[Rfam]
RNA sequence: CCAAUUCGAGACUGCCACCUCCUCCCCCUGAGGCAGUCUUGAGAAUGAACCUACGGCUCUCCUCCUCCCUGACGCCGUGGGUCAGUUCAAAACGGUGGCGACACUCACCUCCUCCCAGAGUGUCGCCACCGAC
Numbered sequence: 001c002c003a004a005u006u007c008g009a010g011a012c013u014g015c016c017a018c019c020u021c022c023u024c025c026c027c028c029u030g031a032g033g034c035a036g037u038c039u040u041g042a043g044a045a046u047g048a049a050c051c052u053a054c055g056g057c058u059c060u061c062c063u064c065c066u067c068c069c070u071g072a073c074g075c076c077g078u079g080g081g082u083c084a085g086u087u088c089a090a091a092a093c094g095g096u097g098g099c100g101a102c103a104c105u106c107a108c109c110u111c112c113u114c115c116c117a118g119a120g121u122g123u124c125g126c127c128a129c130c131g132a133c
Base pairs, nucleotide, nucleotide: 007041008040009039011037012036013035014034015033016032049082050081051080052079053078054077055076056075057074096128097127098126099125100124101123102122103121104120105119106118